The family of this 119-nucleotide RNA from Arthrobacter sp. MYb227 is "SAM (S-adenosyl methionine) riboswitch aptamer". The match comes from Rfam's covariance-model search (69 bits). The organism belongs to Arthrobacter, within Bacteria.
RNA sequence: AAUCACGAGUUCCAACCAUUCACGGCUCUGGCCGGUUGGACGGCAACCCCCUUCGUCAUAGUGGGGUGCUCCAGAUGAAGAUUCGACGCCGCCCAACCGGACCGGCGUAAGUAUGGCGA
Numbered sequence: 001a002a003u004c005a006c007g008a009g010u011u012c013c014a015a016c017c018a019u020u021c022a023c024g025g026c027u028c029u030g031g032c033c034g035g036u037u038g039g040a041c042g043g044c045a046a047c048c049c050c051c052u053u054c055g056u057c058a059u060a061g062u063g064g065g066g067u068g069c070u071c072c073a074g075a076u077g078a079a080g081a082u083u084c085g086a087c088g089c090c091g092c093c094c095a096a097c098c099g100g101a102c103c104g105g106c107g108u109a110a111g112u113a114u115g116g117c118g119a
Base pairs, nucleotide, nucleotide: 001083002082003081004080009041011040012039013038014037015036016035024033025032042070043069044068047066048065049064051061052060086108087107088106089105090104091103093100094099
Dot-bracket structure: ((((....(.((((((.......((......)).)))))))(((..(((.((.......))..))).))).........))))..((((((.((....))..))))))...........